[Rfam]
A member of the RNA family "MIR396 microRNA precursor family" from Spinacia oleracea, 137 nucleotides long. The base pairs follow the family's consensus structure, which was predicted with WAR. The source organism's lineage runs through Eukaryota, Viridiplantae, Pentapetalae, Caryophyllales and Spinacia. On this family, see Jones-Rhoades and Bartel, Mol Cell 2004: "Computational identification of plant microRNAs and their targets, including a stress-induced miRNA". The match comes from Rfam's covariance-model search (83 bits).
RNA sequence: GUUUUUAUUUUUCCACAGCUUUCUUGAACUGCAUCAUCCAACUCAUUUUCAGGAUUUGGGAAAAUUCCAACAAAAAUAAUUCAGAAAAAUGAAAAUUUUUGGUUGCGGUUCAAUAAAGCUGUGGGAAGAUACAGAUA
Numbered sequence: 001g002u003u004u005u006u007a008u009u010u011u012u013c014c015a016c017a018g019c020u021u022u023c024u025u026g027a028a029c030u031g032c033a034u035c036a037u038c039c040a041a042c043u044c045a046u047u048u049u050c051a052g053g054a055u056u057u058g059g060g061a062a063a064a065u066u067c068c069a070a071c072a073a074a075a076a077u078a079a080u081u082c083a084g085a086a087a088a089a090u091g092a093a094a095a096u097u098u099u100u101g102g103u104u105g106c107g108g109u110u111c112a113a114u115a116a117a118g119c120u121g122u123g124g125g126a127a128g129a130u131a132c133a134g135a136u137a
Base pairs, nucleotide, nucleotide: 003134004133006131007130013124014123015122017120018119019118020117021116022115024113025112026111027110029108030107031106032105033104